[Rfam]
RNA sequence: UUUCUGCAAUGAUGAUUUUAUGAAAAAUUCACAUGUCAGACUUCGGAGAUUCUUGUAUAGAAUCAGUGAGAAGAAAUUCAUAUCUCUGAGCAGAAU
Numbered sequence: 001u002u003u004c005u006g007c008a009a010u011g012a013u014g015a016u017u018u019u020a021u022g023a024a025a026a027a028u029u030c031a032c033a034u035g036u037c038a039g040a041c042u043u044c045g046g047a048g049a050u051u052c053u054u055g056u057a058u059a060g061a062a063u064c065a066g067u068g069a070g071a072a073g074a075a076a077u078u079c080a081u082a083u084c085u086c087u088g089a090g091c092a093g094a095a096u
Stems, first nucleotide, its partner, number of pairs: 002095006048064006
RNA: Small nucleolar RNA R64/Z200 family
Organism: Eutrema salsugineum